[Rfam]
This 68-nucleotide RNA from Actinomadura latina belongs to the Rfam family "L31-Actinobacteria ribosomal protein leader". Taxonomically the source falls in Actinomadura (Bacteria, Bacillati, Streptosporangiales, Thermomonosporaceae).

RNA sequence: GCGGUACCGGUUCACGCCCCCACAUCUCCCAUGGCAUCGCCAUGCGAUGCGGAGGGCGCCCGGCGACC
Numbered sequence: 001g002c003g004g005u006a007c008c009g010g011u012u013c014a015c016g017c018c019c020c021c022a023c024a025u026c027u028c029c030c031a032u033g034g035c036a037u038c039g040c041c042a043u044g045c046g047a048u049g050c051g052g053a054g055g056g057c058g059c060c061c062g063g064c065g066a067c068c
Stems, first nucleotide, its partner, number of pairs: 003068003007063004015058005021052001